[Rfam]
Nucleotides: 097
Base pairs, nucleotide, nucleotide: 001097003095005092006091007090008089009088010087012085013084014083015082016081017080018079019078022075023074024073025072026071027070028069029068030067031066032065033064034063035062036061037060
Number, partner (000 for none) and nucleotide at each position: 001097u002000c003095c004000a005092a006091a007090u008089g009088a010087u011000a012085c013084u014083u015082c016081u017080u018079c019078u020000a021000a022075c023074a024073u025072u026071g027070c028069u029068g030067c031066a032065c033064u034063g035062u036061u037060g038000g039000c040000c041000a042000c043000c044000a045000u046000u047000g048000c049000u050000g051000c052000g053000c054000u055000a056000u057000u058000g059000g060037c061036a062035a063034c064033a065032g066031u067030g068029c069028a070027g071026c072025a073024a074023u075022g076000u077000c078019a079018g080017a081016a082015g083014a084013a085012g086000u087010a088009u089008c090007a091006u092005u093000u094000g095003g096000a097001a